Bacterial RNase P class A: a 392-nucleotide RNA sequence from Acidiphilium cryptum. The organism belongs to Acidiphilium cryptum, within Bacteria. Pairs were carried over by alignment from the consensus structure, which is taken from published work. Its family is annotated with dimeric ribonuclease P complex, tRNA processing and ribonuclease P activity in the Gene Ontology. It is annotated as a ribozyme.

[Rfam]
Nucleotides: 392
Stems, first nucleotide, its partner, number of pairs: 001388010011377001012341007020039008044375003048372005053221004064274001066217005071085005086100001087098004101212002106210002109205002123152002125148007133140001160178006179201001180199004185194003225298004235289006268282004305324008
Number, partner (000 for none) and nucleotide at each position: 001388c002387c003386a004385g005384a006383c007382g008381g009380u010379u011377g012341g013340a014339c015338g016337g017336c018335c019000g020039c021038c022037g023036u024035g025034c026033c027032g028000c029000u030000c031000g032027c033026g034025g035024c036023g037022c038021g039020g040000a041000g042000g043000a044375a045374a046373g047000u048372c049371c050370g051369g052368g053221c054220u055219c056218c057000a058000u059000g060000g061000a062000a063000u064274g065000a066217c067216g068215g069214u070213g071085c072084c073083g074082g075081c076000u077000a078000a079000c080000g081075g082074c083073c084072g085071g086100c087098g088097g089096g090095g091000g092000c093000g094000a095090c096089c097088c098087c099000a100086g101212g102211g103000a104000a105000a106210g107209u108000g109205c110204c111000a112000c113000a114000g115000a116000a117000a118000a119000c120000a121000u122000a123152c124151c125148g126147c127146c128145g129144g130143u131142a132000c133140g134000c135000c136000u137000c138000g139000g140133c141000c142131u143130g144129c145128c146127g147126g148125c149000a150000a151124g152123g153000g154000u155000g156000a157000a158000a159000a160178g161177g162176u163175g164174c165173g166000g167000u168000a169000a170000g171000a172000g173165c174164g175163c176162a177161c178160c179201g180199c181198g182197c183196c184000g185194c186193c187192g188000g189000c190000a191000a192187c193186g194185g195000g196183g197182g198181c199180g200000g201179c202000a203000g204110g205109g206000a207000a208000a209107a210106c211102c212101c213070c214069a215068c216067c217066g218056g219055g220054a221053g222000c223000a224000a225298g226297a227296c228295c229000g230000a231000a232000u233000a234000g235289g236288g237287g238286c239285g240284a241000c242000c243000g244000g245000c246000g247000g248000c249000a250000u251000g252000a253000g254000c255000g256000a257000u258000c259000a260000u261000g262000g263000c264000c265000g266000c267000g268282g269281a270280g271279g272000g273000a274064u275000u276000c277000c278000g279271c280270c281269u282268c283000g284240u285239c286238g287237c288236c289235c290000g291000g292000g293000u294000u295228g296227g297226u298225c299000g300000c301000g302000c303000g304000a305324g306323g307322c308321a309320c310319g311318c312317a313000g314000c315000g316000a317312u318311g319310c320309g321308u322307g323306u324305c325000c326000c327000a328000g329000a330000u331000g332000a333000a334000u335018g336017g337016c338015c339014g340013u341012c342000c343000a344000g345000c346000a347000u348000c349000c350000g351000c352000g353000a354000g355000g356000g357000u358000g359000u360000g361000g362000a363000c364000a365000g366000a367000a368052c369051c370050c371049g372048g373046c374045u375044u376000a377011c378000a379010g380009a381008c382007c383006g384005u385004c386003u387002g388001g389000c390000a391000u392000u